[Rfam]
RNA sequence: GGCAAUAAACGGACAUCGCAAUAAGCCAUUCGGACCCGGGGGCGGUACCCGGCGCCUCCACCAAAGCCCAGCGCAGGUUGGGCUUCGGCGGGGGCGAAAUAGGAUCGACGAGGGUGUAAAGGGUGCUCUUUUGCUCGGCAUGGUUCCGCCGUUAUCGGGCCAUUGCAAUAGUUGCCAACGACAACUUUGCUCCGGUUGCGGUUGCCGCGUAA
Numbered sequence: 001g002g003c004a005a006u007a008a009a010c011g012g013a014c015a016u017c018g019c020a021a022u023a024a025g026c027c028a029u030u031c032g033g034a035c036c037c038g039g040g041g042g043c044g045g046u047a048c049c050c051g052g053c054g055c056c057u058c059c060a061c062c063a064a065a066g067c068c069c070a071g072c073g074c075a076g077g078u079u080g081g082g083c084u085u086c087g088g089c090g091g092g093g094g095c096g097a098a099a100u101a102g103g104a105u106c107g108a109c110g111a112g113g114g115u116g117u118a119a120a121g122g123g124u125g126c127u128c129u130u131u132u133g134c135u136c137g138g139c140a141u142g143g144u145u146c147c148g149c150c151g152u153u154a155u156c157g158g159g160c161c162a163u164u165g166c167a168a169u170a171g172u173u174g175c176c177a178a179c180g181a182c183a184a185c186u187u188u189g190c191u192c193c194g195g196u197u198g199c200g201g202u203u204g205c206c207g208c209g210u211a212a
Stems, first nucleotide, its partner, number of pairs: 001135005014125004026114002030111003036052005053096007136151004
permuted transfer-messenger RNA: a 212-nucleotide RNA from Chelatococcus reniformis. From the family's description: Bacterial tmRNA, also known as 10Sa RNA or SsrA, is named for its dual tRNA and mRNA-like properties. The base pairs follow the family's consensus structure, which is taken from published work. Lineage of the source: Bacteria > Alphaproteobacteria > Hyphomicrobiales > Chelatococcaceae > Chelatococcus.